[Rfam]
RNA sequence: GGACAACAGCAAGCAGGAAAGAACGGGUGAAGCGAUAGGGCUACACGCAAGUGACAUGGUGGUCAGGCUGCCGGAUAGCAGACAGAGCGUGUGAAGAAUAAACAUGACCCGUCAAAGCAGUUGAAGAAAACAGGAACGAUAGGACAAGAAAGCAUAGUGUUUGGAACUAUUUGAAGAAAGCUGAACAGGUUGAGCCAAUCAACACUUUACUCCUAGAACAAGAAAUCGUUAAGUGGAAGAAUCAACCGAGCGAGAUGACACAGCACUGUUUGUCC
Numbered sequence: 001g002g003a004c005a006a007c008a009g010c011a012a013g014c015a016g017g018a019a020a021g022a023a024c025g026g027g028u029g030a031a032g033c034g035a036u037a038g039g040g041c042u043a044c045a046c047g048c049a050a051g052u053g054a055c056a057u058g059g060u061g062g063u064c065a066g067g068c069u070g071c072c073g074g075a076u077a078g079c080a081g082a083c084a085g086a087g088c089g090u091g092u093g094a095a096g097a098a099u100a101a102a103c104a105u106g107a108c109c110c111g112u113c114a115a116a117g118c119a120g121u122u123g124a125a126g127a128a129a130a131c132a133g134g135a136a137c138g139a140u141a142g143g144a145c146a147a148g149a150a151a152g153c154a155u156a157g158u159g160u161u162u163g164g165a166a167c168u169a170u171u172u173g174a175a176g177a178a179a180g181c182u183g184a185a186c187a188g189g190u191u192g193a194g195c196c197a198a199u200c201a202a203c204a205c206u207u208u209a210c211u212c213c214u215a216g217a218a219c220a221a222g223a224a225a226u227c228g229u230u231a232a233g234u235g236g237a238a239g240a241a242u243c244a245a246c247c248g249a250g251c252g253a254g255a256u257g258a259c260a261c262a263g264c265a266c267u268g269u270u271u272g273u274c275c
Stems, first nucleotide, its partner, number of pairs: 001275004005270005023112006043092006052065004068081004120246005130234002135230006141214004149208004158187007189203005
RNA: RAGATH-8 RNA